[Rfam]
RNA sequence: UUGCAUCUUUUGACAGCCCAGUGUCUUGUGAUGUUUAGAUGCCUGGGUUUUAUUAUACAGAUGCGAAAUUAAAAGUCCCUGCGCUUUCUUCGUGUCCUGUCAGUGACCUAGAAGAUUGAAUUGGGGACUACAGAA
Numbered sequence: 001u002u003g004c005a006u007c008u009u010u011u012g013a014c015a016g017c018c019c020a021g022u023g024u025c026u027u028g029u030g031a032u033g034u035u036u037a038g039a040u041g042c043c044u045g046g047g048u049u050u051u052a053u054u055a056u057a058c059a060g061a062u063g064c065g066a067a068a069u070u071a072a073a074a075g076u077c078c079c080u081g082c083g084c085u086u087u088c089u090u091c092g093u094g095u096c097c098u099g100u101c102a103g104u105g106a107c108c109u110a111g112a113a114g115a116u117u118g119a120a121u122u123g124g125g126g127a128c129u130a131c132a133g134a135a
Stems, first nucleotide, its partner, number of pairs: 002065007011052002015049007076127006084118001087115004092109001094107003